[Rfam]
RNA: FMN riboswitch aptamer (RFN element)
RNA sequence: GCUUAUUCUCAGGGCGGGGUGAAAGUCCCCACCGGCGGUAAAUCAGCAAGUUAGUGCUGAAAGCCCGCGAGCGCUCACGCCAGGUCCGGCGGGAGGUCAGCAGAUCCGGUGUGAUUCCGGAGCCGACGGUUAAAGUCCGGAUGGGAGAGAGUAACG
Numbered sequence: 001g002c003u004u005a006u007u008c009u010c011a012g013g014g015c016g017g018g019g020u021g022a023a024a025g026u027c028c029c030c031a032c033c034g035g036c037g038g039u040a041a042a043u044c045a046g047c048a049a050g051u052u053a054g055u056g057c058u059g060a061a062a063g064c065c066c067g068c069g070a071g072c073g074c075u076c077a078c079g080c081c082a083g084g085u086c087c088g089g090c091g092g093g094a095g096g097u098c099a100g101c102a103g104a105u106c107c108g109g110u111g112u113g114a115u116u117c118c119g120g121a122g123c124c125g126a127c128g129g130u131u132a133a134a135g136u137c138c139g140g141a142u143g144g145g146a147g148a149g150a151g152u153a154a155c156g
Base pairs, nucleotide, nucleotide: 003154004153005152006151007150008149009148010147017029018028019027031136032135033125034124035068036067037066038065063123064122071101072100105121106120107119108118109117127139128138129137